[Rfam]
RNA: mir-31 microRNA precursor family
RNA sequence: AAGUUUUAUAGUGGAGAGAUGUAGCAGAGCUGAGAUGGGAUCCCAUCUCAGCUCUGCUACAUCUCUCCACUAUAAAACUUU
Numbered sequence: 001a002a003g004u005u006u007u008a009u010a011g012u013g014g015a016g017a018g019a020u021g022u023a024g025c026a027g028a029g030c031u032g033a034g035a036u037g038g039g040a041u042c043c044c045a046u047c048u049c050a051g052c053u054c055u056g057c058u059a060c061a062u063c064u065c066u067c068c069a070c071u072a073u074a075a076a077a078c079u080u081u
Base pairs, nucleotide, nucleotide: 005076006075007074008073009072010071011070012069013068014067015066016065017064018063019062020061021060022059023058024057025056026055027054028053029052030051
Dot-bracket structure: ....((((((((((((((((((((((((((....................)))))))))))))))))))))))))).....